[Rfam]
RNA sequence: AAAGUCCAUUUCAGUGAAGGAGUAGCAAUCCACAUUGGCUCCGAGCCGUGCGCCGACGCCCGCGAGGUCGUCGGUGAAGCGUCGGUAGGAGAAAGCACAGGCCAGCCAUUGAGCCGCGUAAGGGACCUAAUCUCGAGUGCCGACGGCGUGGAUGCUCCGGAAGGCAACAUGGUAGGGCGCGUUAUUGCGAGUGCCCGACCAACUCGGCGUGGUCGUAGAACC
Dot-bracket structure: ...........(((((..(((.[.[[..))).))))).((((..((((((((((((((.((....)).))))))))...)).)))).))))...................(.((((((..............(((((((((..(((..........)))...)))....((((.((((((......]].])))))).)))))))))))))))))........
RNA: Group II catalytic intron D1-D4-6